[Rfam]
RNA sequence: AAGUGAUAUGAUGUUUUACCAUCUUUCGGGACUGACUCUAGAAGUGGAGAGUUCUUUCUUUAAUACUGAUCACAU
Numbered sequence: 001a002a003g004u005g006a007u008a009u010g011a012u013g014u015u016u017u018a019c020c021a022u023c024u025u026u027c028g029g030g031a032c033u034g035a036c037u038c039u040a041g042a043a044g045u046g047g048a049g050a051g052u053u054c055u056u057u058c059u060u061u062a063a064u065a066c067u068g069a070u071c072a073c074a075u
Stems, first nucleotide, its partner, number of pairs: 001075001003073004